Shown here is a 107-nucleotide RNA sequence from Nitrosomonas sp. Nm58, a member of the family "Guanidine-I riboswitch aptamer". About the family: This family represents a conserved RNA structure found upstream of the ykkC and yxkD genes in Bacillus subtilis and related genes in other bacteria. The function of this family is unclear although it has been suggested that it may function to switch on efflux pumps and detoxification systems in response to harmful environmental molecules. Rfam links the family to the GO term regulation of gene expression. It scores 90 bits against the family's covariance model. The family has 100 seed sequences and 1,509 matches in Rfam 15.1.
RNA sequence: GUAAUAGCAAACUAGGGUUCCGACUUCUUAUAUAAGGAGUGUCUGGUCCAAGAGUUUCUGGCUUCGGUAAUAACGAAGCUCCACGGAGGGAUAAAAGCCCGGGAGAU
Numbered sequence: 001g002u003a004a005u006a007g008c009a010a011a012c013u014a015g016g017g018u019u020c021c022g023a024c025u026u027c028u029u030a031u032a033u034a035a036g037g038a039g040u041g042u043c044u045g046g047u048c049c050a051a052g053a054g055u056u057u058c059u060g061g062c063u064u065c066g067g068u069a070a071u072a073a074c075g076a077a078g079c080u081c082c083a084c085g086g087a088g089g090g091a092u093a094a095a096a097g098c099c100c101g102g103g104a105g106a107u
Stems, first nucleotide, its partner, number of pairs: 007059001009057004015049002020046002022043001023040006060080007082102001084105001088100003